[Rfam]
RNA sequence: CAUAUCCCCGCGGGAGAGACCGGGCCUUUCGAGGCCCGGCGCCGAAGGCGCAACCGCCCCGGAAACGCUCAGGCAAAAGGACCGCUGGGGACUU
Numbered sequence: 001c002a003u004a005u006c007c008c009c010g011c012g013g014g015a016g017a018g019a020c021c022g023g024g025c026c027u028u029u030c031g032a033g034g035c036c037c038g039g040c041g042c043c044g045a046a047g048g049c050g051c052a053a054c055c056g057c058c059c060c061g062g063a064a065a066c067g068c069u070c071a072g073g074c075a076a077a078a079g080g081a082c083c084g085c086u087g088g089g090g091a092c093u094u
Stems, first nucleotide, its partner, number of pairs: 006089003010085004020039006041074003044070002048068003054062002
This 94-nucleotide RNA sequence from Allobosea thiooxidans belongs to the Rfam family "Glycine riboswitch aptamer". This family represents the bacterial glycine riboswitch. Glycine riboswitches usually consist of two metabolite-binding aptamers domains with similar structures in tandem. The aptamers cooperatively bind glycine to regulate the expression of downstream genes. In Bacillus subtilis, this riboswitch is found upstream of the gcvT operon which controls glycine degradation.